[Rfam]
RNA sequence: GCCGCGCCUAGCUCGACGGAACGAAAACCGGGCACCUUCCCCGGCUGGCGCGGCACCUGAUUUUGAAGG
Numbered sequence: 001g002c003c004g005c006g007c008c009u010a011g012c013u014c015g016a017c018g019g020a021a022c023g024a025a026a027a028c029c030g031g032g033c034a035c036c037u038u039c040c041c042c043g044g045c046u047g048g049c050g051c052g053g054c055a056c057c058u059g060a061u062u063u064u065g066a067a068g069g
Stems, first nucleotide, its partner, number of pairs: 001054008011022001013020002028044005035069005
RNA: int-alpA RNA